A member of the RNA family "Eukaryotic small subunit ribosomal RNA" from Zopfia rhizophila, 542 nucleotides of a longer RNA.
Rfam links the family to the GO terms ribosome and structural constituent of ribosome.
The organism belongs to Zopfia rhizophila, within Eukaryota.
Pairs were carried over by alignment from the consensus structure, which is taken from published work.
RNA sequence: AAAGUUAUUAAAGUUAAAAAGCUUAUAAUUAAAUCUUAAGCCUAGCUAGCUAAUUUAUCUUACUGUGUAUACUAGUUUAGCUAGGUUUUUUCUUCUAGAAAGCUAUAUACUCUUUACUAAGUAUAUUAGAAAACUAAAACUUUUACUUUAAAAAAAUUAGAAUAUUUAAAAUAGGCCUUUACUUAAAUACGUUAGCAUAAAAUAAUAGAAUAAAAUAUAUAGUUUUAUUUUAUUAGUUUCUAAGACUAUUAUAAUAAUUAGUAAGAAUAAUCAGGGGCAUUAGUAUUUAAUUAUUAGAAAUAAAAUUCUUAGAUUUAUUAAAACUAACUACUAUAAAAGCAUUUGCCAAGGAUGUUUUUAUUAAUUAAUAAAUAAAAAUUAAAGAAUUAAAGAUAAUUAGAUAUUAUUAUAGUUUUAACUGUAAAUUAUAUUAACUAGAGAUUAAAUAAUAUUACUCUUUUAACUCACUCAGCACCUUACAAAAAAUUAAAGUUUUUAGAUUCUAAAAGAAGUAUGGUUAUAAGACUAAAACUUAAAGAAAU
Numbered sequence: 001a002a003a004g005u006u007a008u009u010a011a012a013g014u015u016a017a018a019a020a021g022c023u024u025a026u027a028a029u030u031a032a033a034u035c036u037u038a039a040g041c042c043u044a045g046c047u048a049g050c051u052a053a054u055u056u057a058u059c060u061u062a063c064u065g066u067g068u069a070u071a072c073u074a075g076u077u078u079a080g081c082u083a084g085g086u087u088u089u090u091u092c093u094u095c096u097a098g099a100a101a102g103c104u105a106u107a108u109a110c111u112c113u114u115u116a117c118u119a120a121g122u123a124u125a126u127u128a129g130a131a132a133a134c135u136a137a138a139a140c141u142u143u144u145a146c147u148u149u150a151a152a153a154a155a156a157u158u159a160g161a162a163u164a165u166u167u168a169a170a171a172u173a174g175g176c177c178u179u180u181a182c183u184u185a186a187a188u189a190c191g192u193u194a195g196c197a198u199a200a201a202a203u204a205a206u207a208g209a210a211u212a213a214a215a216u217a218u219a220u221a222g223u224u225u226u227a228u229u230u231u232a233u234u235a236g237u238u239u240c241u242a243a244g245a246c247u248a249u250u251a252u253a254a255u256a257a258u259u260a261g262u263a264a265g266a267a268u269a270a271u272c273a274g275g276g277g278c279a280u281u282a283g284u285a286u287u288u289a290a291u292u293a294u295u296a297g298a299a300a301u302a303a304a305a306u307u308c309u310u311a312g313a314u315u316u317a318u319u320a321a322a323a324c325u326a327a328c329u330a331c332u333a334u335a336a337a338a339g340c341a342u343u344u345g346c347c348a349a350g351g352a353u354g355u356u357u358u359u360a361u362u363a364a365u366u367a368a369u370a371a372a373u374a375a376a377a378a379u380u381a382a383a384g385a386a387u388u389a390a391a392g393a394u395a396a397u398u399a400g401a402u403a404u405u406a407u408u409a410u411a412g413u414u415u416u417a418a419c420u421g422u423a424a425a426u427u428a429u430a431u432u433a434a435c436u437a438g439a440g441a442u443u444a445a446a447u448a449a450u451a452u453u454a455c456u457c458u459u460u461u462a463a464c465u466c467a468c469u470c471a472g473c474a475c476c477u478u479a480c481a482a483a484a485a486a487u488u489a490a491a492g493u494u495u496u497u498a499g500a501u502u503c504u505a506a507a508a509g510a511a512g513u514a515u516g517g518u519u520a521u522a523a524g525a526c527u528a529a530a531a532c533u534u535a536a537a538g539a540a541a542u
Stems, first nucleotide, its partner, number of pairs: 012504002019502001021373001023371002028365003264359004268354002271351002276347004282325002286322006293315001297308003334339001379418005388412001392408004430501003433494003437477002442472002445469001447467001449465001452463002481488002507534003516527004